[Rfam]
RNA sequence: UAAAGUGCUUAUAGUGCAGGUAGUAUAUUAUCUACAUCUACUGCAAUGUGAGCACUUCCAGU
Dot-bracket structure: (.(((((((((((.(((.(((((..............)))))))).)))))))))))..)..